A member of the RNA family "6S / SsrS RNA" from Alkaliphilus sp. B6464, 181 nucleotides long. The base pairs follow the family's consensus structure, which is taken from published work. NCBI's taxonomy places the organism under Bacteria, Bacillati, Peptostreptococcales, Natronincolaceae, Alkaliphilus.
RNA sequence: CGAGUUCUGAGGUGUUCGUAAGGCUUAGUAAAAUUCAACCUACAAUAGACAUCCGGGAGAUUAUAUUUUUAUUUGGACGAAAAGCCGCCAUAGAGUGGACUUCGAAAUAAUAAAAUAUUUCACCCACCUUGCAGUGAGGAGAGGGUGUGAAUUUUGCAGCUGACGGCAUCUUGGAUAAACU
Numbered sequence: 001c002g003a004g005u006u007c008u009g010a011g012g013u014g015u016u017c018g019u020a021a022g023g024c025u026u027a028g029u030a031a032a033a034u035u036c037a038a039c040c041u042a043c044a045a046u047a048g049a050c051a052u053c054c055g056g057g058a059g060a061u062u063a064u065a066u067u068u069u070u071a072u073u074u075g076g077a078c079g080a081a082a083a084g085c086c087g088c089c090a091u092a093g094a095g096u097g098g099a100c101u102u103c104g105a106a107a108u109a110a111u112a113a114a115a116u117a118u119u120u121c122a123c124c125c126a127c128c129u130u131g132c133a134g135u136g137a138g139g140a141g142a143g144g145g146u147g148u149g150a151a152u153u154u155u156g157c158a159g160c161u162g163a164c165g166g167c168a169u170c171u172u173g174g175a176u177a178a179a180c181u
Stems, first nucleotide, its partner, number of pairs: 006175010017165003031154007038146003055125003059121002066115001068114006080102002085098004
The match comes from Rfam's covariance-model search (70 bits).